[Rfam]
RNA sequence: AUACUUACCUGGACGGUGUCUAUGGCUGAUCAAGAAGGGUCGUGGCCUAAGUUGAUGAUCUUAAUUGCACCUAGGAAGGUUAUCAACUUAUCCACUCCCCAUGUGGGAGUCGCACGUCAUAAUUUGUUUCUUGGGGGUACGUGUUCGGUAUUCGCACCGCUCCUG
Dot-bracket structure: ...........(((((.(((..(((((..........))))).))).)(((.(.(((.((((............).))).)))..))))...((((.((.....)).))).)..))))..............(((((...(((...........)))..))))).
RNA: U1 spliceosomal RNA
Organism: Zostera marina